[Rfam]
RNA: Bacterial large subunit ribosomal RNA, nucleotides 2037 to 2623
RNA sequence: CCCGCGGUUAGACGGAAAGACCCCAUGAACCUUUACUCUAGCUUCGCACUGGCACCAGGAUUGCGAUGUGCAGGAUAGGUGGUAGGCCUUGAAGCGGAGGCGCCAGCCUCCGUGGAGCCGCCCUUGAGAUACCACCCUUCGUGCUCUUGGUGUCUAACCGCGGCCCGUCAUCCGGGUCCGGGACCCUGCGUGGUGGGGAGUUUGACUGGGGCGGUCGCCUCCCAAACAGUAACGGAGGCGCGCGAUGGUGGGCUCAGGGCGGUCGGAAAUCGCCCGUUGAGUGCAAUGGCAGAAGCCCGCCUGACUGCGAGACCGACAGGUCGAGCAGAGUCGAAAGACGGCCAUAGUGAUCCGGUGGUCCCGCGUGGAAGGGCCAUCGCUCAACGAAUAAAAGGUACUCUGGGGAUAACAGGCUGAUACUGCCCAAGAGUCCAUAUCGACGGCAGUGUUUGGCACCUCGAUGUCGGCUCAUCUCAUCCUGGGGCUGGAGCAGGUCCCAAGGGUAUGGCUGUUCGCCAUUUAAAGAGGUACGUGAGCUGGGUUUAGAACGUCGUGAGACAGUUCGGUCCCUAUCUUCCGUGGGUGCA
Numbered sequence: 001c002c003c004g005c006g007g008u009u010a011g012a013c014g015g016a017a018a019g020a021c022c023c024c025a026u027g028a029a030c031c032u033u034u035a036c037u038c039u040a041g042c043u044u045c046g047c048a049c050u051g052g053c054a055c056c057a058g059g060a061u062u063g064c065g066a067u068g069u070g071c072a073g074g075a076u077a078g079g080u081g082g083u084a085g086g087c088c089u090u091g092a093a094g095c096g097g098a099g100g101c102g103c104c105a106g107c108c109u110c111c112g113u114g115g116a117g118c119c120g121c122c123c124u125u126g127a128g129a130u131a132c133c134a135c136c137c138u139u140c141g142u143g144c145u146c147u148u149g150g151u152g153u154c155u156a157a158c159c160g161c162g163g164c165c166c167g168u169c170a171u172c173c174g175g176g177u178c179c180g181g182g183a184c185c186c187u188g189c190g191u192g193g194u195g196g197g198g199a200g201u202u203u204g205a206c207u208g209g210g211g212c213g214g215u216c217g218c219c220u221c222c223c224a225a226a227c228a229g230u231a232a233c234g235g236a237g238g239c240g241c242g243c244g245a246u247g248g249u250g251g252g253c254u255c256a257g258g259g260c261g262g263u264c265g266g267a268a269a270u271c272g273c274c275c276g277u278u279g280a281g282u283g284c285a286a287u288g289g290c291a292g293a294a295g296c297c298c299g300c301c302u303g304a305c306u307g308c309g310a311g312a313c314c315g316a317c318a319g320g321u322c323g324a325g326c327a328g329a330g331u332c333g334a335a336a337g338a339c340g341g342c343c344a345u346a347g348u349g350a351u352c353c354g355g356u357g358g359u360c361c362c363g364c365g366u367g368g369a370a371g372g373g374c375c376a377u378c379g380c381u382c383a384a385c386g387a388a389u390a391a392a393a394g395g396u397a398c399u400c401u402g403g404g405g406a407u408a409a410c411a412g413g414c415u416g417a418u419a420c421u422g423c424c425c426a427a428g429a430g431u432c433c434a435u436a437u438c439g440a441c442g443g444c445a446g447u448g449u450u451u452g453g454c455a456c457c458u459c460g461a462u463g464u465c466g467g468c469u470c471a472u473c474u475c476a477u478c479c480u481g482g483g484g485c486u487g488g489a490g491c492a493g494g495u496c497c498c499a500a501g502g503g504u505a506u507g508g509c510u511g512u513u514c515g516c517c518a519u520u521u522a523a524a525g526a527g528g529u530a531c532g533u534g535a536g537c538u539g540g541g542u543u544u545a546g547a548a549c550g551u552c553g554u555g556a557g558a559c560a561g562u563u564c565g566g567u568c569c570c571u572a573u574c575u576u577c578c579g580u581g582g583g584u585g586c587a
Base pairs, nucleotide, nucleotide: 001583002582003581004580005579006578007577010575011574012573014570015569022404023403024402025401027400028399029396030395031394032393033392035201036200037199038198042193043192045190046189047188048187051154052153053152054151055150056149057148058147059146060145062143063142064141065140066139068137078136079135080134081133082132085119086118087117094113095112096111097110098109099108100107101106158181159180160179162178163177164176165175166174167173204216205215206214207213217239218238219237220236221235222234240385242342243341248300249299250298251297252296253295254280255279257275258274259273260272261271262270281290282289305328306327307326308325311322312321313320330339331338332337353379354378355377356376357375358374359373361372362371413454414453415452417451418448419447420446421445422444423443424442428438429437465540466538467537468536469535470532471529472528473527474526475525478503479502481498482497483496484495485494486493505519506518507517508516509515546564547563548562549561550559551558552557